RNA: MIR168 microRNA precursor family
Organism: Actinidia chinensis
RNA sequence: CUUGCAGCAGUCUCUAACUUGCUUGGUACAGACCGGGAUUUGCUUUACCGGAAAACAGUAUUUAUGUUUUCUCCAAUGAGUCAGAUCCCGUCUUGCAUCAAGCAAGUUGGAGCCUGCAGUGCAU
Numbered sequence: 001c002u003u004g005c006a007g008c009a010g011u012c013u014c015u016a017a018c019u020u021g022c023u024u025g026g027u028a029c030a031g032a033c034c035g036g037g038a039u040u041u042g043c044u045u046u047a048c049c050g051g052a053a054a055a056c057a058g059u060a061u062u063u064a065u066g067u068u069u070u071c072u073c074c075a076a077u078g079a080g081u082c083a084g085a086u087c088c089c090g091u092c093u094u095g096c097a098u099c100a101a102g103c104a105a106g107u108u109g110g111a112g113c114c115u116g117c118a119g120u121g122c123a124u
Base pairs, nucleotide, nucleotide: 013111014110017107018106019105020104023101024100025099026098027097029095030094031093034090035089036088037087038086040084041083